[Rfam]
RNA sequence: AGGAGGAGGAAGGCAAAAUGCGAAGCAUCUUUUAGGAUGCCUUCCGACGAGUUGCCGCCGAACGGACGUGAGGGGGCGUUAGUUUAA
Numbered sequence: 001a002g003g004a005g006g007a008g009g010a011a012g013g014c015a016a017a018a019u020g021c022g023a024a025g026c027a028u029c030u031u032u033u034a035g036g037a038u039g040c041c042u043u044c045c046g047a048c049g050a051g052u053u054g055c056c057g058c059c060g061a062a063c064g065g066a067c068g069u070g071a072g073g074g075g076g077c078g079u080u081a082g083u084u085u086a087a
Stems, first nucleotide, its partner, number of pairs: 008045006015031002018028003054077003058073002062069002
RNA: GA-cis RNA
Organism: bacterium D16-54